[Rfam]
RNA: Glycine riboswitch aptamer
Organism: Mycolicibacterium agri
RNA sequence: UGACACGCAGCGGGAGAACCUCCGUUUCGGAGGCGCCGUAGGAGCAACUUCCUCCCCGGGAAUCUCUCAGGCCCAGUACCGCAGCGUCGAG
Numbered sequence: 001u002g003a004c005a006c007g008c009a010g011c012g013g014g015a016g017a018a019c020c021u022c023c024g025u026u027u028c029g030g031a032g033g034c035g036c037c038g039u040a041g042g043a044g045c046a047a048c049u050u051c052c053u054c055c056c057c058g059g060g061a062a063u064c065u066c067u068c069a070g071g072c073c074c075a076g077u078a079c080c081g082c083a084g085c086g087u088c089g090a091g
Stems, first nucleotide, its partner, number of pairs: 006086003010082004019033004035072003038068001042066003048059002